[Rfam]
RNA sequence: CCGUGCUAGACGGGGAGGUAGCGGUGCCCUGUAACCCGCAAUCCGCUAUAGCGGGGUCGAAGCCUGUCCGAGGUACCCGUUUGUCGAGGCUGGCCCAAGUCGGGAGGCGUUGACAAUCGGGUCCUGCGCAACGGGAGCCCGUGAACCCGGUCAGGUCCGGAAGGAAGCAGCCGUAAGCGGGCCACCCCGUGUGCCGCAGGGGCGCCUGGUUCGAGCCUCGCGCUUGGGUAACGCUCGGGUGACGCGGUAUCGAAGACAGGUGCACGG
Number, nucleotide and partner (000 for none) at each position: 001c267002c266003g265004u264005g263006c262007u000008a000009g058010a057011c056012g030013g029014g028015g027016a000017g025018g000019u023020a000021g000022c000023g019024g000025u017026g000027c015028c014029c013030u012031g000032u000033a000034a000035c055036c054037c053038g052039c051040a000041a000042u000043c000044c000045g000046c000047u000048a000049u000050a000051g039052c038053g037054g036055g035056g011057u010058c009059g000060a000061a000062g000063c260064c259065u258066g257067u256068c255069c000070g000071a000072g251073g250074u249075a248076c247077c000078c244079g243080u242081u241082u000083g000084u238085c237086g236087a235088g000089g000090c000091u230092g229093g000094c000095c227096c226097a225098a224099g223100u222101c000102g000103g000104g219105a000106g217107g216108c215109g000110u000111u000112g000113a000114c000115a211116a210117u209118c208119g207120g206121g205122u204123c200124c199125u198126g197127c196128g195129c191130a190131a000132c189133g188134g187135g186136a000137g182138c181139c180140c179141g178142u177143g000144a000145a000146c000147c000148c173149g172150g171151u170152c000153a000154g000155g000156u165157c164158c163159g000160g000161a000162a000163g158164g157165a156166a000167g000168c000169a000170g151171c150172c149173g148174u000175a000176a000177g142178c141179g140180g139181g138182c137183c000184a000185c000186c135187c134188c133189g132190u130191g129192u000193g000194c000195c128196g127197c126198a125199g124200g123201g000202g000203c000204g122205c121206c120207u119208g118209g117210u116211u115212c000213g000214a000215g108216c107217c106218u000219c104220g000221c000222g100223c099224u098225u097226g096227g095228g000229u092230a091231a000232c000233g000234c000235u087236c086237g085238g084239g000240u000241g081242a080243c079244g078245c000246g000247g076248u075249a074250u073251c072252g000253a000254a000255g068256a067257c066258a065259g064260g063261u000262g006263c005264a004265c003266g002267g001
RNA: Bacterial large signal recognition particle RNA
Organism: Calditerricola satsumensis